[Rfam]
RNA sequence: CAGCAUGUUUCCAAGGGCUGUGACUGCUGGUAGCCAUGGGUUCUCCAACUGCAUGCAAGAGCAACGUGGAGGGAUUUUGACAGCCCAGGUUACACUGUACCUGCAGCUGCCACUCACAUUUCCUAUAAAC
Numbered sequence: 001c002a003g004c005a006u007g008u009u010u011c012c013a014a015g016g017g018c019u020g021u022g023a024c025u026g027c028u029g030g031u032a033g034c035c036a037u038g039g040g041u042u043c044u045c046c047a048a049c050u051g052c053a054u055g056c057a058a059g060a061g062c063a064a065c066g067u068g069g070a071g072g073g074a075u076u077u078u079g080a081c082a083g084c085c086c087a088g089g090u091u092a093c094a095c096u097g098u099a100c101c102u103g104c105a106g107c108u109g110c111c112a113c114u115c116a117c118a119u120u121u122c123c124u125a126u127a128a129a130c
Stems, first nucleotide, its partner, number of pairs: 011039002016035006068123005083110002086103004
Rfam assigns this 130-nucleotide sequence from Tupaia belangeri to the family "Small nucleolar RNA SNORA44". The literature on the family includes a 2001 paper in EMBO J by Huttenhofer et al., "RNomics: an experimental approach that identifies 201 candidates for novel, small, non-messenger RNAs in mouse". The source organism's lineage runs through Eukaryota, Metazoa, Dipnotetrapodomorpha, Scandentia and Tupaia belangeri. The family has 27 seed sequences and 1,056 matches in Rfam 15.1. Pairs were carried over by alignment from the consensus structure, which was predicted with PFOLD. Rfam classes the family as an H/ACA-box small nucleolar RNA. ACA44 is a member of the H/ACA class of snoRNA that guide the sites of modification of uridines to pseudouridines.